[Rfam]
Background
Small nucleolar RNA Z221/R21b: a 94-nucleotide sequence from Lactuca sativa. For this family Rfam cites "The high diversity of snoRNAs in plants: identification and comparative study of 120 snoRNA genes from Oryza sativa" (Chen et al., Nucleic Acids Res, 2003). The family's consensus secondary structure was predicted with WAR. It is annotated as a C/D-box small nucleolar RNA. A search with the family's covariance model found it, with a score of 58 bits.
RNA sequence: GGGCAGUGAUGAUAAACUAGGAAAGUCAUGCACCACUCUGAUAUUCAUUGUGAUCGACAAACUUUCUCAUUACCCAUAUUUUGUAUCUGAGCCC
Number, nucleotide and partner (000 for none) at each position: 001g094002g093003g092004c091005a000006g000007u000008g000009a000010u000011g000012a000013u000014a000015a000016a000017c000018u000019a000020g000021g000022a000023a000024a000025g000026u000027c000028a000029u000030g000031c000032a000033c000034c000035a000036c000037u000038c000039u000040g000041a000042u000043a000044u000045u000046c000047a000048u000049u000050g000051u000052g000053a000054u000055c000056g000057a000058c000059a000060a000061a000062c000063u000064u000065u000066c000067u000068c000069a000070u000071u000072a000073c000074c000075c000076a000077u000078a000079u000080u000081u000082u000083g000084u000085a000086u000087c000088u000089g000090a000091g004092c003093c002094c001